[Rfam]
RNA sequence: AGCCUCAUUCCAGAUGAAAAUGAGCAUUGUUGUUCAUGGGGUCCAGAAAUUGUUAAUGCAGCUACAUUGAGACACAAUCUAUGCUUCCAUCACAGUAAGUUGAUGGCAGUGGUGACAGUUAGACCUUAACAUUU
Numbered sequence: 001a002g003c004c005u006c007a008u009u010c011c012a013g014a015u016g017a018a019a020a021u022g023a024g025c026a027u028u029g030u031u032g033u034u035c036a037u038g039g040g041g042u043c044c045a046g047a048a049a050u051u052g053u054u055a056a057u058g059c060a061g062c063u064a065c066a067u068u069g070a071g072a073c074a075c076a077a078u079c080u081a082u083g084c085u086u087c088c089a090u091c092a093c094a095g096u097a098a099g100u101u102g103a104u105g106g107c108a109g110u111g112g113u114g115a116c117a118g119u120u121a122g123a124c125c126u127u128a129a130c131a132u133u134u
Stems, first nucleotide, its partner, number of pairs: 002062002006058003021045002024042002027039001074127001076126001088114006

Shown here is a 134-nucleotide sequence from Equus caballus, a member of the family "Small nucleolar RNA SNORA1". It is annotated as an H/ACA-box small nucleolar RNA. The base pairs follow the family's consensus structure, which was predicted with PFOLD. Rfam's curators write: ACA1 is a member of the H/ACA class of snoRNA that guide the sites of modification of uridines to pseudouridines. Gene Ontology terms of the family: nucleolus and RNA processing. The match comes from Rfam's covariance-model search (107 bits).